[Rfam]
RNA sequence: UCGUAAGUCGUUGCUUGGCACGUGGCCAGCAUCGGCGAGCUUCGUUCGUCCCGAAUGGAUGUGGCGAAGUUUCACCCGAAAAAGGAA
Numbered sequence: 001u002c003g004u005a006a007g008u009c010g011u012u013g014c015u016u017g018g019c020a021c022g023u024g025g026c027c028a029g030c031a032u033c034g035g036c037g038a039g040c041u042u043c044g045u046u047c048g049u050c051c052c053g054a055a056u057g058g059a060u061g062u063g064g065c066g067a068a069g070u071u072u073c074a075c076c077c078g079a080a081a082a083a084g085g086a087a
Stems, first nucleotide, its partner, number of pairs: 007036004012031004018026002037072010047061005

The record is an 87-nucleotide sequence from Pseudomonas sp. TAD18, which matches "gyrA RNA" in Rfam.
A search with the family's covariance model found it, with a score of 79 bits.